[Rfam]
RNA sequence: AGUCAAGAGUCAUUGGCACCGUUUUUGGCGGGUAGGUUUCUUUUGCCUUUUUGAAAGGUAAAGGACGAUG
Numbered sequence: 001a002g003u004c005a006a007g008a009g010u011c012a013u014u015g016g017c018a019c020c021g022u023u024u025u026u027g028g029c030g031g032g033u034a035g036g037u038u039u040c041u042u043u044u045g046c047c048u049u050u051u052u053g054a055a056a057g058g059u060a061a062a063g064g065a066c067g068a069u070g
Stems, first nucleotide, its partner, number of pairs: 009066003013062002018059003023056004027051002030048001032046005
Dot-bracket structure: ........(((.((...(((..((((((.(.(((((.....))))).).)).))))))).)).)))....
RNA: S-element